This 56-nucleotide RNA from Monodelphis domestica belongs to the Rfam family "mir-7371 microRNA precursor family".
Rfam links the family to the GO terms RISC complex and miRNA-mediated post-transcriptional gene silencing.
Taxonomically the source falls in Monodelphis (Eukaryota, Eumetazoa, Bilateria, Dipnotetrapodomorpha).

[Rfam]
RNA sequence: UUUGUACCAGAUGCUUUAUUUGUGAGUUCUGUCAAAAAGAGCAUCUUAUACAAAUG
Numbered sequence: 001u002u003u004g005u006a007c008c009a010g011a012u013g014c015u016u017u018a019u020u021u022g023u024g025a026g027u028u029c030u031g032u033c034a035a036a037a038a039g040a041g042c043a044u045c046u047u048a049u050a051c052a053a054a055u056g
Stems, first nucleotide, its partner, number of pairs: 001054006009046009019036004